[Rfam]
RNA sequence: CGGCAACGGUGAUGACACUGUGACCCUGCAGGGCCCUGGCUGCUCCGUGGAGACACCAGUCCCUCUAACCUGAUGUUGCUG
Numbered sequence: 001c002g003g004c005a006a007c008g009g010u011g012a013u014g015a016c017a018c019u020g021u022g023a024c025c026c027u028g029c030a031g032g033g034c035c036c037u038g039g040c041u042g043c044u045c046c047g048u049g050g051a052g053a054c055a056c057c058a059g060u061c062c063c064u065c066u067a068a069c070c071u072g073a074u075g076u077u078g079c080u081g
Stems, first nucleotide, its partner, number of pairs: 001081007
The family of this 81-nucleotide RNA sequence from Anolis carolinensis is "Small nucleolar RNA SNORD127". Its family is annotated with RNA processing and nucleolus in the Gene Ontology. A reference for the family is Yang et al. (2006), "snoSeeker: an advanced computational package for screening of guide and orphan snoRNA genes in the human genome", Nucleic Acids Res. The family's consensus secondary structure was predicted with WAR. The family's RNA type in Rfam is C/D-box small nucleolar RNA.